[Rfam]
RNA sequence: CUCAUCUGUCUGUUGGGCUGGAGGCAGGGCCUUUGUGAAGGCGGGUGGUGCUCAGAUCGCCUCUGGGCCCUUCCUCCAGCCCCGAGGCGGAUUCA
Numbered sequence: 001c002u003c004a005u006c007u008g009u010c011u012g013u014u015g016g017g018c019u020g021g022a023g024g025c026a027g028g029g030c031c032u033u034u035g036u037g038a039a040g041g042c043g044g045g046u047g048g049u050g051c052u053c054a055g056a057u058c059g060c061c062u063c064u065g066g067g068c069c070c071u072u073c074c075u076c077c078a079g080c081c082c083c084g085a086g087g088c089g090g091a092u093u094c095a
Stems, first nucleotide, its partner, number of pairs: 004092008015082010026071007039062006
Rfam assigns this 95-nucleotide RNA from Pongo pygmaeus to the family "mir-326 microRNA precursor family". NCBI's taxonomy places the organism under Eukaryota, Sarcopterygii, Amniota, Theria, Pongo.